RNA: Streptococcus sRNA SpF59 (ldcC RNA)
RNA sequence: UGACCGCUUCCUUUACCGGAAGCCAAGGCCAUACGGACAGCCGGGUCGAAUGCCGA
Numbered sequence: 001u002g003a004c005c006g007c008u009u010c011c012u013u014u015a016c017c018g019g020a021a022g023c024c025a026a027g028g029c030c031a032u033a034c035g036g037a038c039a040g041c042c043g044g045g046u047c048g049a050a051u052g053c054c055g056a
Base pairs, nucleotide, nucleotide: 001048002047003046004045005044006023007022008021009020010019011018